[Rfam]
This 75-nucleotide RNA sequence from Streptomyces sp. WZ.A104 belongs to the Rfam family "ASpks TB sRNA".
The organism belongs to Streptomyces, within Bacteria.
The match comes from Rfam's covariance-model search (77 bits).
Nucleotides: 075
Stems, first nucleotide, its partner, number of pairs: 014026004033069001038065002043060003047056001049054001
Number, partner (000 for none) and nucleotide at each position: 001000c002000u003000u004000c005000a006000a007000c008000g009000a010000g011000c012000c013000g014026a015025g016024c017023c018000a019000g020000a021000g022000g023017g024016g025015c026014u027000g028000u029000u030000c031000a032000c033069c034000c035000u036000c037000g038065c039064g040000u041000c042000c043060c044059u045058g046000c047056c048000c049054g050000u051000a052000c053000g054049u055000c056047g057000c058045c059044a060043g061000c062000a063000g064039c065038g066000c067000c068000u069033g070000c071000g072000c073000c074000u075000c